The record is a 78-nucleotide RNA, which matches "c-di-GMP-I-GGC riboswitch aptamer" in Rfam. Pairs were carried over by alignment from the consensus structure, which is taken from published work. Clan: c-di-GMP_I riboswitch clan. Rfam's curators put it in the seed alignment. Rfam 15.1 lists 1,298 matches to the family in 717 species.
[Rfam]
RNA sequence: CCCGACAAAGCCAAACCCUCCGAGAGAAGGGGGCGGGAAGCGGCGGGCUUUAACAAUAAGAUGGCCGAGCUGCCGAAG
Numbered sequence: 001c002c003c004g005a006c007a008a009a010g011c012c013a014a015a016c017c018c019u020c021c022g023a024g025a026g027a028a029g030g031g032g033g034c035g036g037g038a039a040g041c042g043g044c045g046g047g048c049u050u051u052a053a054c055a056a057u058a059a060g061a062u063g064g065c066c067g068a069g070c071u072g073c074c075g076a077a078g
Stems, first nucleotide, its partner, number of pairs: 001078001003075002011036002016031004021026001034064001039071003044067003047062001049060001